Rfam assigns this 201-nucleotide RNA from Cetobacterium somerae to the family "Group II catalytic intron D1-D4-5". Rfam links the family to the GO term Group II intron splicing. Group II introns are found in rRNA, tRNA and mRNA of organelles in fungi, plants and protists, and also in mRNA in bacteria. A reference for the family is Bonen and Vogel (2001), "The ins and outs of group II introns", Trends Genet. It scores 173 bits against the family's covariance model.
[Rfam]
RNA sequence: GAGAACUAUAUUUUCGAGAAGUAGAAUGAAGGAGUAACGCCCCGAAAUGCUUCCUCUGAUACUCCGAUAUGCGAUUAGAUUCUAACUAAAUCUAAUGGUGUAAAGCUCGGUGAAGUCGAUUGAGAGUUAUCCCUAACAGGUUAGGCUGAGGAAAUGCGAACCAGAGGUGGUCGAGAUAAUGAUAGAUCGGGAGUCAAAUCU
Numbered sequence: 001g002a003g004a005a006c007u008a009u010a011u012u013u014u015c016g017a018g019a020a021g022u023a024g025a026a027u028g029a030a031g032g033a034g035u036a037a038c039g040c041c042c043c044g045a046a047a048u049g050c051u052u053c054c055u056c057u058g059a060u061a062c063u064c065c066g067a068u069a070u071g072c073g074a075u076u077a078g079a080u081u082c083u084a085a086c087u088a089a090a091u092c093u094a095a096u097g098g099u100g101u102a103a104a105g106c107u108c109g110g111u112g113a114a115g116u117c118g119a120u121u122g123a124g125a126g127u128u129a130u131c132c133c134u135a136a137c138a139g140g141u142u143a144g145g146c147u148g149a150g151g152a153a154a155u156g157c158g159a160a161c162c163a164g165a166g167g168u169g170g171u172c173g174a175g176a177u178a179a180u181g182a183u184a185g186a187u188c189g190g191g192a193g194u195c196a197a198a199u200c201u
Stems, first nucleotide, its partner, number of pairs: 018053006031043002034040001054193004064110004068102005074096008117189005126180006132151003139147002155174001157173002160171004